A member of the RNA family "mir-16 microRNA precursor family" from Astyanax mexicanus, 83 nucleotides long. A search with the family's covariance model found it, with a score of 45 bits. Lineage of the source: Eukaryota > Clupeocephala > Otomorpha > Otophysi > Astyanax. The family's consensus secondary structure was predicted with PFOLD. For this family Rfam cites "Cryo-EM Structures of Human Drosha and DGCR8 in Complex with Primary MicroRNA" (Partin et al., Mol Cell, 2020). Gene Ontology terms of the family: RISC complex and miRNA-mediated post-transcriptional gene silencing.
[Rfam]
RNA sequence: GCCUCACUGAAGCAGCACAAGUAAUAUUGGGGUUAGACUUUAUUUUCUCACACACCAAUAUUUACGUGCUGCUGAAGUGGGGA
Numbered sequence: 001g002c003c004u005c006a007c008u009g010a011a012g013c014a015g016c017a018c019a020a021g022u023a024a025u026a027u028u029g030g031g032g033u034u035a036g037a038c039u040u041u042a043u044u045u046u047c048u049c050a051c052a053c054a055c056c057a058a059u060a061u062u063u064a065c066g067u068g069c070u071g072c073u074g075a076a077g078u079g080g081g082g083a
Base pairs, nucleotide, nucleotide: 002082003081005079006078007077011073012072013071014070015069016068017067018066020063023062024061025060026059027058028057029056030055